[Rfam]
RNA sequence: UUUCCAUAACACCCAUGGCAGAAGUGCUCUUAUCGCAGCCCUGUCAGAUUCUAAUGAAUCUGCAAAUUCUGCU
Numbered sequence: 001u002u003u004c005c006a007u008a009a010c011a012c013c014c015a016u017g018g019c020a021g022a023a024g025u026g027c028u029c030u031u032a033u034c035g036c037a038g039c040c041c042u043g044u045c046a047g048a049u050u051c052u053a054a055u056g057a058a059u060c061u062g063c064a065a066a067u068u069c070u071g072c073u
Base pairs, nucleotide, nucleotide: 013038017073018072019071020070021069022068023067024036025035026034045062046061047060048059049058050057051056
Background
Rfam assigns this 73-nucleotide sequence from Alligator mississippiensis to the family "Mammalian CPEB3 ribozyme". Rfam describes the family as follows. The mammalian CPEB3 ribozyme is a self cleaving RNA located in the second intron of the CPEB3 gene which belongs to a family of genes regulating messenger RNA polyadenylation.